[Rfam]
RNA: Nuclear RNase P
RNA sequence: GUGAUGACAAUGCUUGCUUUAGGGGUAACAUACAAGGCACUUGUUGCUAGUAUUACCCUUGGGAAGGUCUGAGACAUAGGUAAUCAACCCUCUUGCAGGGAGUUCCCCUAAUGGAGGAGUGAGUCAACAGAAACCAGGCUAAGCUGGGAGUUUACGGCAUGUGAUGUCUGUAGACUGAUGCAAAGCUUCCAGUUCUAGUUGAAAGAGACUCAUUACCAGCAAAAGUAGUACAAUUUGCAAGGUGGUCCAAGGGCCAUAACUCAAUUCAGACUACUCUGCCAUCAC
Numbered sequence: 001g002u003g004a005u006g007a008c009a010a011u012g013c014u015u016g017c018u019u020u021a022g023g024g025g026u027a028a029c030a031u032a033c034a035a036g037g038c039a040c041u042u043g044u045u046g047c048u049a050g051u052a053u054u055a056c057c058c059u060u061g062g063g064a065a066g067g068u069c070u071g072a073g074a075c076a077u078a079g080g081u082a083a084u085c086a087a088c089c090c091u092c093u094u095g096c097a098g099g100g101a102g103u104u105c106c107c108c109u110a111a112u113g114g115a116g117g118a119g120u121g122a123g124u125c126a127a128c129a130g131a132a133a134c135c136a137g138g139c140u141a142a143g144c145u146g147g148g149a150g151u152u153u154a155c156g157g158c159a160u161g162u163g164a165u166g167u168c169u170g171u172a173g174a175c176u177g178a179u180g181c182a183a184a185g186c187u188u189c190c191a192g193u194u195c196u197a198g199u200u201g202a203a204a205g206a207g208a209c210u211c212a213u214u215a216c217c218a219g220c221a222a223a224a225g226u227a228g229u230a231c232a233a234u235u236u237g238c239a240a241g242g243u244g245g246u247c248c249a250a251g252g253g254c255c256a257u258a259a260c261u262c263a264a265u266u267c268a269g270a271c272u273a274c275u276c277u278g279c280c281a282u283c284a285c
Stems, first nucleotide, its partner, number of pairs: 001285004008278002014239001021060005036048004069269005079217004088102001090100003103118003107114002119213007139198003242257006